[Rfam]
RNA sequence: AAUGAAUCACAUGACUGGCGGAAGUGGAAUUAACCACAUGGAGUGUGAUUCGAAGAUAUGCCGACCGCCUGGGCGAUAAGU
Numbered sequence: 001a002a003u004g005a006a007u008c009a010c011a012u013g014a015c016u017g018g019c020g021g022a023a024g025u026g027g028a029a030u031u032a033a034c035c036a037c038a039u040g041g042a043g044u045g046u047g048a049u050u051c052g053a054a055g056a057u058a059u060g061c062c063g064a065c066c067g068c069c070u071g072g073g074c075g076a077u078a079a080g081u
Base pairs, nucleotide, nucleotide: 003052004051005050006049007048008047009046010045011044012043015040017069018068019067020066021065024037025036026035027034059075060074061073062072

This 81-nucleotide RNA from Paramaledivibacter caminithermalis belongs to the Rfam family "ZMP/ZTP riboswitch aptamer (pfl RNA motif)". Lineage of the source: Bacteria > Bacillati > Clostridia > Peptostreptococcales > Paramaledivibacter caminithermalis. A search with the family's covariance model found it, with a score of 67 bits. The base pairs follow the family's consensus structure, which is taken from published work. Gene Ontology terms of the family: one-carbon metabolic process and regulation of purine nucleotide biosynthetic process.